The family of this 56-nucleotide RNA sequence from Centaurea solstitialis is "Plastid-psbA-3 3UTR RNA".
Plastid psbA-3 is a non-coding RNA (ncRNA) present in plastids.
Taxonomically the source falls in Centaurea (Eukaryota, Streptophytina, Euphyllophyta, Spermatophyta).
The literature on the family includes a 2023 paper in Plant Commun by Richter et al., "Retrograde signaling in plants: A critical review focusing on the GUN pathway and beyond".
Clan: Plastid-psbA 3UTR RNA clan.
[Rfam]
RNA sequence: AAAGGAGCAAUAACUUCCCUCUUAUUUUAUCAAGACGGCUUAUUGCUCCUCUUUUU
Numbered sequence: 001a002a003a004g005g006a007g008c009a010a011u012a013a014c015u016u017c018c019c020u021c022u023u024a025u026u027u028u029a030u031c032a033a034g035a036c037g038g039c040u041u042a043u044u045g046c047u048c049c050u051c052u053u054u055u056u
Stems, first nucleotide, its partner, number of pairs: 001052001003050011020035004